Description:
A member of the RNA family "mir-8834 microRNA precursor family" from Vulpes vulpes, 103 nucleotides long. A search with the family's covariance model found it, with a score of 61 bits. The family has 2 seed sequences and 13,926 matches in Rfam 15.1.

[Rfam]
RNA sequence: AGGAACCACCACAGCGGCGGCAGCCAGCUCUGUAGCCCUGGAGUCAGCUCCCACAGUACCUACAGAGCUCUCUGUCUGCAGGGCCUGGAGGCUCCGGGGUGGG
Numbered sequence: 001a002g003g004a005a006c007c008a009c010c011a012c013a014g015c016g017g018c019g020g021c022a023g024c025c026a027g028c029u030c031u032g033u034a035g036c037c038c039u040g041g042a043g044u045c046a047g048c049u050c051c052c053a054c055a056g057u058a059c060c061u062a063c064a065g066a067g068c069u070c071u072c073u074g075u076c077u078g079c080a081g082g083g084c085c086u087g088g089a090g091g092c093u094c095c096g097g098g099g100u101g102g103g
Base pairs, nucleotide, nucleotide: 002095003094004093006091007090009083010082016076017075018074019073020072022071023070026069027068028067029066030065031064032063033062034061038056039055040054